[Rfam]
RNA sequence: GCCCGCAUGGCGGAACUGGUAGACGCGGACGACUCAAAAUCGUCAGCCGAAAGGCGUGGGGGUUCGAUUCCCUCUGCGGGCA
Numbered sequence: 001g002c003c004c005g006c007a008u009g010g011c012g013g014a015a016c017u018g019g020u021a022g023a024c025g026c027g028g029a030c031g032a033c034u035c036a037a038a039a040u041c042g043u044c045a046g047c048c049g050a051a052a053g054g055c056g057u058g059g060g061g062g063u064u065c066g067a068u069u070c071c072c073u074c075u076g077c078g079g080g081c082a
Base pairs, nucleotide, nucleotide: 001081002080003079004078005077006076007075010026011025012024028044029043030042031041032040058074059073060072061071062070
About this RNA
Shown here is an 82-nucleotide sequence from Methylobacterium nodulans, a member of the family "tRNA". It is annotated as a transfer RNA. Taxonomically the source falls in Methylobacterium nodulans (Bacteria, Pseudomonadati, Pseudomonadota, Alphaproteobacteria).